Description
The record is a 59-nucleotide sequence from Orthopestivirus tauri, which matches "Pestivirus 3' UTR SLI" in Rfam. Taxonomically the source falls in Orthopestivirus tauri (Viruses, Orthornavirae, Kitrinoviricota, Pestiviridae). Rfam classes the family as a cis-regulatory element. The base pairs follow the family's consensus structure. It is one of the family's seed sequences.
[Rfam]
RNA sequence: AGCUGUGUGAGGUUAACUCGACGUCCACGGUUGGACUAGAGGAUGGCUCUAACAGCCCC
Numbered sequence: 001a002g003c004u005g006u007g008u009g010a011g012g013u014u015a016a017c018u019c020g021a022c023g024u025c026c027a028c029g030g031u032u033g034g035a036c037u038a039g040a041g042g043a044u045g046g047c048u049c050u051a052a053c054a055g056c057c058c059c
Base pairs, nucleotide, nucleotide: 002056003055004054005053006052009049011048012047013046014045017041018040019039023036024035025034026033027032